The family of this 68-nucleotide RNA from Thalassobium sp. R2A62 is "L2-Alphaproteobacteria ribosomal protein leader".
RNA sequence: CGGGACCUUCGGGGCCCUACAACCAUGGCGCCUUACGGGGCGUCGCCAAGCAAACGGAAGACAGAUAA
Numbered sequence: 001c002g003g004g005a006c007c008u009u010c011g012g013g014g015c016c017c018u019a020c021a022a023c024c025a026u027g028g029c030g031c032c033u034u035a036c037g038g039g040g041c042g043u044c045g046c047c048a049a050g051c052a053a054a055c056g057g058a059a060g061a062c063a064g065a066u067a068a
Stems, first nucleotide, its partner, number of pairs: 002017003006014003027044007
By type it is a cis-regulatory leader. NCBI's taxonomy places the organism under Bacteria, Pseudomonadati, Alphaproteobacteria, Rhodobacterales, Thalassobium.